[Rfam]
RNA sequence: ACCGGGCUUGGUAACUCUUGCCUGUAACUCAAGUGAGGGUAUUAAAAUGGGUUGGACUAAGGCCUGGCUCAGUUGGUCGGGUUAGAUGGUGCACCAUCUGGCUUGCCUAUUCCAAGUUGGGAGUGGGUUUGGGUUGCUUGAGCGAAGGCUUGGAUGACUCGAACCUUAUAUGCGGGGGAAUGCGUUAGGCUGGUUUCACAGAGCUACGAAAACCUCAACCUUUCAACAGUGGAAGGAUUACAAGUCGUAGCCCAUCUGACUCAUAUAACCUACCGGGCUAGCUCAAAUGAACACCCAUUUUU
Numbered sequence: 001a002c003c004g005g006g007c008u009u010g011g012u013a014a015c016u017c018u019u020g021c022c023u024g025u026a027a028c029u030c031a032a033g034u035g036a037g038g039g040u041a042u043u044a045a046a047a048u049g050g051g052u053u054g055g056a057c058u059a060a061g062g063c064c065u066g067g068c069u070c071a072g073u074u075g076g077u078c079g080g081g082u083u084a085g086a087u088g089g090u091g092c093a094c095c096a097u098c099u100g101g102c103u104u105g106c107c108u109a110u111u112c113c114a115a116g117u118u119g120g121g122a123g124u125g126g127g128u129u130u131g132g133g134u135u136g137c138u139u140g141a142g143c144g145a146a147g148g149c150u151u152g153g154a155u156g157a158c159u160c161g162a163a164c165c166u167u168a169u170a171u172g173c174g175g176g177g178g179a180a181u182g183c184g185u186u187a188g189g190c191u192g193g194u195u196u197c198a199c200a201g202a203g204c205u206a207c208g209a210a211a212a213c214c215u216c217a218a219c220c221u222u223u224c225a226a227c228a229g230u231g232g233a234a235g236g237a238u239u240a241c242a243a244g245u246c247g248u249a250g251c252c253c254a255u256c257u258g259a260c261u262c263a264u265a266u267a268a269c270c271u272a273c274c275g276g277g278c279u280a281g282c283u284c285a286a287a288u289g290a291a292c293a294c295c296c297a298u299u300u301u302u
Base pairs, nucleotide, nucleotide: 001040002039003038004023005022006021007020010017011016028037029036030035044301045300046299047298048297049296050295051294052293054292057289061284062282063281066278069276070275072273073272075270076269077268079262080261081260082259083258084257085256086255088253089252092250099247100246101245102244103243104242105241107236108235110234111233112232113231114230116227117226118225119224120223121222122221123220126165127164128163129162130161131160132159133158134157135156136155138153139152140151141150142149143148174216175215176214177213181210183208184207185206190201191200192199
Background:
Rfam assigns this 302-nucleotide RNA sequence from Cynara cardunculus to the family "Plant signal recognition particle RNA". It is annotated as a non-coding RNA gene. Rfam links the family to the GO terms SRP-dependent cotranslational protein targeting to membrane, signal sequence recognition and signal recognition particle, endoplasmic reticulum targeting. Clan: SRP clan.